The record is a 114-nucleotide RNA sequence from Kitasatospora viridis, which matches "SAM (S-adenosyl methionine) riboswitch aptamer" in Rfam.
The base pairs follow the family's consensus structure, which is taken from published work.
On this family, see Weinberg et al., RNA 2008: "The aptamer core of SAM-IV riboswitches mimics the ligand-binding site of SAM-I riboswitches".
NCBI's taxonomy places the organism under Bacteria, Actinomycetota, Actinomycetes, Streptomycetaceae, Kitasatospora.

RNA sequence: GGUCAUGAGUGUCAGCGUCAAGCCCUGGCUUGCUGACCGGCAACCCUCCCACGCGGCGGGGUGCCCCAGGUGAGGACCGGGCGGUGCCGAACGGCGGCACCGCAAGCGCGAGUU
Numbered sequence: 001g002g003u004c005a006u007g008a009g010u011g012u013c014a015g016c017g018u019c020a021a022g023c024c025c026u027g028g029c030u031u032g033c034u035g036a037c038c039g040g041c042a043a044c045c046c047u048c049c050c051a052c053g054c055g056g057c058g059g060g061g062u063g064c065c066c067c068a069g070g071u072g073a074g075g076a077c078c079g080g081g082c083g084g085u086g087c088c089g090a091a092c093g094g095c096g097g098c099a100c101c102g103c104a105a106g107c108g109c110g111a112g113u114u
Stems, first nucleotide, its partner, number of pairs: 001078004009038001011037006021030002039065003044061003048056002081103009